Description
Rfam assigns this 80-nucleotide RNA sequence to the family "DUF3800-VIII RNA".
[Rfam]
RNA sequence: UAAGCCCUGCACGUUGCGAAGUCCCAAGUUCCACUUGGGAUACGAAAUUCCGGAAAUUUUCAUAGCAACUGCGGGGCUUU
Number, nucleotide and partner (000 for none) at each position: 001u000002a079003a078004g077005c076006c075007c074008u073009g072010c071011a070012c000013g000014u068015u067016g066017c065018g000019a000020a000021g041022u040023c039024c038025c037026a036027a035028g034029u033030u000031c000032c000033a029034c028035u027036u026037g025038g024039g023040a022041u021042a000043c000044g000045a000046a000047a000048u000049u000050c000051c000052g000053g000054a000055a000056a000057u000058u000059u000060u000061c000062a000063u000064a000065g017066c016067a015068a014069c000070u011071g010072c009073g008074g007075g006076g005077c004078u003079u002080u000
Bacteroidetes, Cyanobacteria, Firmicutes, Planctomycetes (1 example), Proteobacteria, Tenericutes (1 example). It is one of the family's seed sequences.